[Rfam]
RNA sequence: AAUAAAAAUGAUGCUUACAUCUUUCGGGACUGAUUGACAUUGAUGUCAAAAUUUUUACUGAUUUUUU
Numbered sequence: 001a002a003u004a005a006a007a008a009u010g011a012u013g014c015u016u017a018c019a020u021c022u023u024u025c026g027g028g029a030c031u032g033a034u035u036g037a038c039a040u041u042g043a044u045g046u047c048a049a050a051a052u053u054u055u056u057a058c059u060g061a062u063u064u065u066u067u
Stems, first nucleotide, its partner, number of pairs: 001067002004064003
Dot-bracket structure: ((.(((.......................................................))).))
Small nucleolar RNA SNORD2: a 67-nucleotide RNA sequence from Cotesia typhae.
The family's consensus secondary structure was predicted with WAR.
The family has 17 seed sequences and 1,116 matches in Rfam 15.1.
It scores 39 bits against the family's covariance model.
Rfam links the family to the GO terms RNA processing and nucleolus.
It is annotated as a C/D-box small nucleolar RNA.
The literature on the family includes a 2004 paper in Gene by Zhou et al., "Identification of a novel box C/D snoRNA from mouse nucleolar cDNA library".